This 62-nucleotide sequence belongs to the Rfam family "RAGATH-18 RNA". The family's RNA type in Rfam is small RNA. It is one of the family's seed sequences.
RNA sequence: CCUCUGGAGCGUUAUAUCAAACGAAAGUAGCUUCGGCAAAAUCGGACGCGGUGAAUGAGGAA
Dot-bracket structure: ((((....(((((........(((.....((....))....)))))))).......))))..